[Rfam]
RNA sequence: AUAAUACUAUGGAACAGGCGGUCGGCAUUUGCCGGCGUAGCCGGGCAACAGCAGUAGGUUAUUAGCCUGCGGGACCCUU
Dot-bracket structure: ........(.((..(.(((.((((((....))))))...)))..((....)).((((((.....))))))..).)).).
Numbered sequence: 001a002u003a004a005u006a007c008u009a010u011g012g013a014a015c016a017g018g019c020g021g022u023c024g025g026c027a028u029u030u031g032c033c034g035g036c037g038u039a040g041c042c043g044g045g046c047a048a049c050a051g052c053a054g055u056a057g058g059u060u061a062u063u064a065g066c067c068u069g070c071g072g073g074a075c076c077c078u079u
Stems, first nucleotide, its partner, number of pairs: 009078001011076002015073001017042003021036006045052002054070006
This 79-nucleotide RNA from Acetonema longum belongs to the Rfam family "NiCo (Nickel/Cobalt) riboswitch aptamer". NCBI's taxonomy places the organism under Bacteria, Bacillati, Bacillota, Acetonema, Acetonema longum. A search with the family's covariance model found it, with a score of 44 bits. The literature on the family includes a 2015 paper in Mol Cell by Furukawa et al., "Bacterial riboswitches cooperatively bind Ni(2+) or Co(2+) ions and control expression of heavy metal transporters".